[Rfam]
RNA sequence: CUCUUAUCCAGAGUGGCGGAGGGACUGGCCCGAAGAAGCCCGGCAACCCCACAAGUUAAUUGUGAAGGUGCUAAUUCCAGCAGACGAAAGUCUGAAAGAUAAGAG
Dot-bracket structure: ((((((((....(.(((...(((.[[[[)))......))))((((.((.((((.......))))..))))))...(]]]](((((....)))))..)))))))))
Record summary: SAM riboswitch aptamer (S box leader): a 105-nucleotide RNA from Tepidibacillus sp. HK-1. Lineage of the source: Bacteria > Bacillota > Bacilli > Bacillaceae > Tepidibacillus. The family's consensus secondary structure is taken from published work. It scores 99 bits against the family's covariance model.